[Rfam]
RNA: skipping-rope RNA
RNA sequence: AGAAUCUGAGGACGGAACAGGCAGCCGUCACACCCUUGUGGUCUUGAAAGAGAUGUAGAUUGUCACCUACCUAUUCU
Numbered sequence: 001a002g003a004a005u006c007u008g009a010g011g012a013c014g015g016a017a018c019a020g021g022c023a024g025c026c027g028u029c030a031c032a033c034c035c036u037u038g039u040g041g042u043c044u045u046g047a048a049a050g051a052g053a054u055g056u057a058g059a060u061u062g063u064c065a066c067c068u069a070c071c072u073a074u075u076c077u
Stems, first nucleotide, its partner, number of pairs: 001077005008071001011029005020064004031050001032042003055070004